c-di-AMP riboswitch aptamer (ydaO/yuaA leader): a 166-nucleotide RNA sequence from Actinomyces bowdenii. A search with the family's covariance model found it, with a score of 64 bits.

[Rfam]
RNA sequence: CUCGAUCCGGGGCCAGUGAAACCAGACAAGUGGCAGGAACGGGGGAACCAAUCUCGGCCACCCGCGCACCCGCUCGAGUGGCCUUGGGGUGAAGCCCGCAUCCGCGGGCCGGGCGUCUCCAGUCCGAACCCGACAGCUCACCUCGUCGGCUCAUCCAGGAGAAAGC
Dot-bracket structure: ((...(((...........................)))((((((....((..................................))(((.....((((......))))..((((.......))))...))).........)))))).)).................